[Rfam]
mir-970 microRNA precursor family: a 75-nucleotide RNA from Musca domestica.
The family has 11 seed sequences and 75 matches in Rfam 15.1.
Lineage of the source: Eukaryota > Eumetabola > Brachycera > Muscomorpha > Musca.
Rfam links the family to the GO terms RISC complex and miRNA-mediated post-transcriptional gene silencing.
The base pairs follow the family's consensus structure, which was predicted with RNAalifold.
RNA sequence: UGGCUAUAGUUGGCGUUUGUUUUAUUUGGUAGUGUUUCGAACUAGGCUAUCAUAAGACACACGCGGCUAUGGCCG
Numbered sequence: 001u002g003g004c005u006a007u008a009g010u011u012g013g014c015g016u017u018u019g020u021u022u023u024a025u026u027u028g029g030u031a032g033u034g035u036u037u038c039g040a041a042c043u044a045g046g047c048u049a050u051c052a053u054a055a056g057a058c059a060c061a062c063g064c065g066g067c068u069a070u071g072g073c074c075g
Base pairs, nucleotide, nucleotide: 001075002074003073004072005071006070008068009067010066011065013064014063015062018059019058021057022056023055027052028051029050030049031048